[Rfam]
RNA sequence: AUGUCCUGCUCGUGAUCGUCGUCUCAGCCUUCACCGGCAGGCGGCACAACGAAGGGCUCCUGCAAGGGCGUGACUCGCAGGAGCCCUUC
Numbered sequence: 001a002u003g004u005c006c007u008g009c010u011c012g013u014g015a016u017c018g019u020c021g022u023c024u025c026a027g028c029c030u031u032c033a034c035c036g037g038c039a040g041g042c043g044g045c046a047c048a049a050c051g052a053a054g055g056g057c058u059c060c061u062g063c064a065a066g067g068g069c070g071u072g073a074c075u076c077g078c079a080g081g082a083g084c085c086c087u088u089c
Base pairs, nucleotide, nucleotide: 002043003042005041006040007039008038009037010036012034013033014032015031018028019027051089052088053087054086055085056084057083058082059081060080061079062078063077065075066074
Source information: A member of the RNA family "sodF sRNA" from Streptomyces bingchenggensis, 89 nucleotides long. The source organism's lineage runs through Bacteria, Bacillati, Kitasatosporales, Streptomyces and Streptomyces bingchenggensis. A reference for the family is Kim et al. (2014), "Inverse regulation of Fe- and Ni-containing SOD genes by a Fur family regulator Nur through small RNA processed from 3'UTR of the sodF mRNA", Nucleic Acids Res.